[Rfam]
RNA sequence: AAGUAUUACAGCUCUUUUAGAAUUUGUCUAGCAGGUUUUCUGGUUUGCACCGGAAAGCCCCA
Numbered sequence: 001a002a003g004u005a006u007u008a009c010a011g012c013u014c015u016u017u018u019a020g021a022a023u024u025u026g027u028c029u030a031g032c033a034g035g036u037u038u039u040c041u042g043g044u045u046u047g048c049a050c051c052g053g054a055a056a057g058c059c060c061c062a
Stems, first nucleotide, its partner, number of pairs: 034059011

U7 small nuclear RNA: a 62-nucleotide sequence from Camelus dromedarius. A search with the family's covariance model found it, with a score of 80 bits. Rfam describes the family as follows. Animal histone pre-mRNAs are spliced by a different mechanism than nuclear pre-mRNAs and self-splicing introns. This processing involves the U7 snRNP, which contains only one RNA species: U7.